This 180-nucleotide sequence from Neisseria bacilliformis belongs to the Rfam family "6S / SsrS RNA". Rfam's curators write: E. coli 6S RNA was the first non coding RNA to be sequenced, but its function was unknown until recently. The family's consensus secondary structure is taken from published work. Taxonomically the source falls in Neisseria bacilliformis (Bacteria, Pseudomonadota, Betaproteobacteria, Neisseriales). It is annotated as a non-coding RNA gene. The match comes from Rfam's covariance-model search (55 bits).
Nucleotides: 180
Base pairs, nucleotide, nucleotide: 003177004176005175006174007173008172009171010170011169012167013166014165017163018162032150033149034148035146037144038143039142040141041140042139058124059123060122062120063119064118067115069114074111082101087097088096089095
Number, partner (000 for none) and nucleotide at each position: 001000u002000u003177u004176u005175c006174c007173c008172u009171g010170c011169g012167g013166c014165g015000u016000g017163c018162g019000c020000c021000a022000a023000g024000g025000c026000a027000u028000a029000c030000a031000u032150u033149c034148c035146u036000u037144u038143g039142a040141a041140c042139c043000a044000a045000u046000a047000a048000g049000u050000u051000c052000g053000c054000u055000u056000c057000a058124g059123g060122u061000c062120g063119u064118c065000g066000g067115g068000a069114g070000u071000g072000c073000g074111g075000c076000g077000g078000g079000c080000g081000c082101g083000a084000g085000c086000g087097u088096u089095c090000c091000u092000u093000u094000g095089g096088a097087a098000a099000c100000g101082c102000a103000c104000c105000c106000g107000a108000a109000g110000c111074c112000g113000u114069c115067c116000g117000a118064g119063a120062c121000g122060g123059c124058c125000g126000c127000c128000u129000u130000g131000u132000u133000u134000g135000a136000c137000a138000a139042g140041g141040u142039u143038c144037a145000a146035g147000c148034g149033g150032a151000u152000u153000g154000a155000g156000c157000u158000g159000a160000a161000a162018c163017g164000c165014c166013g167012c168000c169011u170010g171009c172008g173007g174006g175005g176004a177003a178000u179000c180000c